[Rfam]
RNA: Glycine riboswitch aptamer
Organism: Paenibacillus tyrphae
RNA sequence: CUCUGGAGAGUACCCUCCUUGCUUUAAGCAAGCUCAGGGUCACCCAAGGGGAAACUUGUACGGCCGCUUCCAUCCCGGAAGACGGCGGCAAGGUAACUCUCAGGUACAAAGGACAGAG
Numbered sequence: 001c002u003c004u005g006g007a008g009a010g011u012a013c014c015c016u017c018c019u020u021g022c023u024u025u026a027a028g029c030a031a032g033c034u035c036a037g038g039g040u041c042a043c044c045c046a047a048g049g050g051g052a053a054a055c056u057u058g059u060a061c062g063g064c065c066g067c068u069u070c071c072a073u074c075c076c077g078g079a080a081g082a083c084g085g086c087g088g089c090a091a092g093g094u095a096a097c098u099c100u101c102a103g104g105u106a107c108a109a110a111g112g113a114c115a116g117a118g
Base pairs, nucleotide, nucleotide: 001118002117003116004115005114012040013039014038015037042105043104044103046100049099050098051097055092056091057090058089059088